[Rfam]
RNA sequence: AAAGCAGGCUGCAAUUACAGUGCUUCAUUCUGUGGGAGUACUGUCAUUUUCCUGCUGAGAGUAACUCUGUUAACACUGUCUCCAGUUUCACCUACACAAUGGUGAGAUUGAUUUGUUUUAACAUGUACAAGU
Numbered sequence: 001a002a003a004g005c006a007g008g009c010u011g012c013a014a015u016u017a018c019a020g021u022g023c024u025u026c027a028u029u030c031u032g033u034g035g036g037a038g039u040a041c042u043g044u045c046a047u048u049u050u051c052c053u054g055c056u057g058a059g060a061g062u063a064a065c066u067c068u069g070u071u072a073a074c075a076c077u078g079u080c081u082c083c084a085g086u087u088u089c090a091c092c093u094a095c096a097c098a099a100u101g102g103u104g105a106g107a108u109u110g111a112u113u114u115g116u117u118u119u120a121a122c123a124u125g126u127a128c129a130a131g132u
Stems, first nucleotide, its partner, number of pairs: 003056006018043009066125001068123006075116001083110010
A member of the RNA family "Small nucleolar RNA SNORA69" from Trogon melanurus, 132 nucleotides long. Pairs were carried over by alignment from the consensus structure, which was predicted with PFOLD. A search with the family's covariance model found it, with a score of 84 bits. The family has 16 seed sequences and 808 matches in Rfam 15.1. Rfam's curators write: U69 is a member of the H/ACA class of small nucleolar RNAs (snoRNAs) which act as guides in the the modification of uridines to pseudouridines.